Rfam assigns this 105-nucleotide RNA sequence from Chelatococcus reniformis to the family "EcpR1". Rfam's curators write: Perviously named SmelC291, SmrC10, or Sra33. According to its overproduction phenotype it was renamed Elongated Cell Phenotype RNA1. It scores 62 bits against the family's covariance model. For this family Rfam cites "Deep sequencing uncovers numerous small RNAs on all four replicons of the plant pathogen Agrobacterium tumefaciens" (Wilms et al., RNA Biol, 2012).
[Rfam]
RNA sequence: CAGCCCUACGGAUGCUAGGUCCGCCGCAUCUCCUGGCUUCGUGGGGUUAGGCCGGUCCGGAGGCGUGUGCCUGUACGUCAGGCGCCGCCUCCGGCCGGCCACCUU
Numbered sequence: 001c002a003g004c005c006c007u008a009c010g011g012a013u014g015c016u017a018g019g020u021c022c023g024c025c026g027c028a029u030c031u032c033c034u035g036g037c038u039u040c041g042u043g044g045g046g047u048u049a050g051g052c053c054g055g056u057c058c059g060g061a062g063g064c065g066u067g068u069g070c071c072u073g074u075a076c077g078u079c080a081g082g083c084g085c086c087g088c089c090u091c092c093g094g095c096c097g098g099c100c101a102c103c104u105u
Stems, first nucleotide, its partner, number of pairs: 003047008014037006050100008059092002